[Rfam]
Nucleotides: 103
Stems, first nucleotide, its partner, number of pairs: 018089008029049007058079001059077006
Number, partner (000 for none) and nucleotide at each position: 001000a002000c003000a004000g005000u006000u007000c008000a009000g010000u011000a012000c013000a014000c015000g016000u017000c018089c019088u020087g021086c022085u023084g024083u025082a026000u027000a028000a029049u030048u031047g032046u033045g034044g035043g036000a037000a038000u039000a040000u041000g042000g043035c044034u045033c046032a047031c048030a049029a050000g051000u052000c053000u054000c055000u056000a057000c058079c059077g060076g061075g062074u063073a064072a065000c066000c067000g068000u069000a070000a071000a072064u073063u074062a075061c076060c077059c078000u079058g080000g081000c082025u083024a084023c085022a086021g087020c088019g089018g090000a091000a092000a093000g094000u095000g096000u097000a098000c099000c100000u101000a102000g103000g
Rfam assigns this 103-nucleotide RNA sequence from Calderihabitans maritimus to the family "Purine riboswitch aptamer". Taxonomically the source falls in Calderihabitans (Bacteria, Bacillota, Neomoorellales, Calderihabitantaceae). Pairs were carried over by alignment from the consensus structure, which is taken from published work.